[Rfam]
RNA sequence: CUUGACCGAGCCGAGCAGCAGCGGCCGGUCCUCGUCCCGGUCCCGCCCGUACGUGGCCAGGAGGGCCUGGGCCUC
Numbered sequence: 001c002u003u004g005a006c007c008g009a010g011c012c013g014a015g016c017a018g019c020a021g022c023g024g025c026c027g028g029u030c031c032u033c034g035u036c037c038c039g040g041u042c043c044c045g046c047c048c049g050u051a052c053g054u055g056g057c058c059a060g061g062a063g064g065g066c067c068u069g070g071g072c073c074u075c
Stems, first nucleotide, its partner, number of pairs: 015025002031071003038065001043060001045058001047056003
A member of the RNA family "ASpks TB sRNA" from Streptomyces netropsis, 75 nucleotides long. The source organism's lineage runs through Bacteria, Actinomycetota, Kitasatosporales, Streptomycetaceae and Streptomyces. A search with the family's covariance model found it, with a score of 75 bits.